[Rfam]
This 60-nucleotide RNA from Silurus meridionalis belongs to the Rfam family "mir-723 microRNA precursor family". It scores 71 bits against the family's covariance model. Lineage of the source: Eukaryota > Metazoa > Ostariophysi > Siluridae > Silurus.
Nucleotides: 060
Base pairs, nucleotide, nucleotide: 002057003056004055005054007052008051009050010049013046014045015044016043017042018041021040022039023038024037025036026035027034
Number, partner (000 for none) and nucleotide at each position: 001000g002057g003056c004055a005054g006000u007052u008051u009050u010049g011000a012000g013046u014045g015044a016043u017042g018041u019000u020000a021040c022039u023038u024037c025036u026035u027034u028000c029000a030000u031000a032000a033000u034027a035026a036025a037024g038023g039022a040021g041018a042017c043016a044015u045014c046013a047000g048000u049010u050009a051008a052007a053000u054005c055004u056003g057002u058000g059000g060000u